[Rfam]
RNA sequence: AGACUGAAAGUAAGAGUUGGAGGGAACUGAACUCUUGUUCUAUGUUUCUUCACGAGUUCAGUUUUCUCCAACAUCUUAUCUUCAGCGC
Number, nucleotide and partner (000 for none) at each position: 001a000002g000003a000004c085005u084006g083007a082008a081009a000010g000011u078012a077013a076014g075015a000016g072017u071018u070019g069020g068021a067022g000023g065024g064025a063026a062027c061028u060029g059030a058031a000032c056033u055034c000035u000036u000037g000038u000039u000040c000041u000042a000043u000044g000045u000046u000047u000048c000049u000050u000051c000052a000053c000054g000055a033056g032057u000058u030059c029060a028061g027062u026063u025064u024065u023066c000067u021068c020069c019070a018071a017072c016073a000074u000075c014076u013077u012078a011079u000080c000081u008082u007083c006084a005085g004086c000087g000088c000